[Rfam]
RNA sequence: GCCAGGCGCAGUGGCGCAUGCCUGUAGUCCCAGCUACUCGGGAGGCUGAGCUAGGAGGAUCACUGGAGCCCAGGAGUUCUGGGCUGUACUGUGCUAUGUCGAUCAGGCGUCCACACUAAGUUUGACAUCAAUAUGGUGACCUCCUGGGAGCAGGAGACCACCAGGUUCACCUGGGGUGAACUAGCCCAGGUCGAAAAUGGAGCAGGUCAAAACUCCUGUGCUGAUUAGUAGUGGGAUUGUGCUUGUGAACAGCCACUGCACUCCAGCCUGGGCAAUAUAGCAAGACCUCAUCUCUA
Number, nucleotide and partner (000 for none) at each position: 001g046002c045003c044004a023005g022006g021007c020008g019009c000010a000011g000012u000013g000014g000015c000016g000017c000018a000019u008020g007021c006022c005023u004024g000025u000026a000027g000028u043029c042030c041031c000032a000033g000034c000035u000036a000037c000038u000039c000040g000041g030042g029043a028044g003045g002046c001047u000048g294049a293050g292051c000052u290053a000054g288055g287056a000057g000058g000059a000060u283061c000062a000063c280064u279065g278066g000067a000068g273069c272070c271071c270072a269073g268074g267075a000076g000077u000078u000079c266080u265081g264082g263083g262084c000085u260086g259087u258088a257089c000090u255091g254092u000093g253094c252095u251096a000097u249098g000099u247100c000101g000102a000103u000104c245105a244106g243107g242108c241109g240110u239111c235112c234113a000114c233115a232116c231117u230118a229119a000120g226121u000122u224123u223124g222125a000126c220127a219128u218129c000130a167131a166132u165133a000134u163135g162136g161137u160138g159139a000140c000141c156142u155143c154144c153145u152146g151147g000148g000149a000150g000151c146152a145153g144154g143155a142156g141157a000158c000159c138160a137161c136162c135163a134164g000165g132166u131167u130168c000169a000170c000171c000172u000173g216174g215175g214176g213177u212178g000179a000180a000181c000182u209183a000184g207185c206186c205187c000188a000189g000190g000191u200192c199193g198194a000195a000196a000197a000198u193199g192200g191201a000202g000203c000204a000205g186206g185207u184208c000209a182210a000211a000212a177213c176214u175215c174216c173217u000218g128219u127220g126221c000222u124223g123224a122225u000226u120227a000228g000229u118230a117231g116232u115233g114234g112235g111236a000237u000238u000239g110240u109241g108242c107243u106244u105245g104246u000247g099248a000249a097250c000251a095252g094253c093254c091255a090256c000257u088258g087259c086260a085261c000262u083263c082264c081265a080266g079267c074268c073269u072270g071271g070272g069273c068274a000275a000276u000277a000278u065279a064280g063281c000282a000283a060284g000285a000286c000287c055288u054289c000290a052291u000292c050293u049294c048295u000296a000
RNA: Metazoan signal recognition particle RNA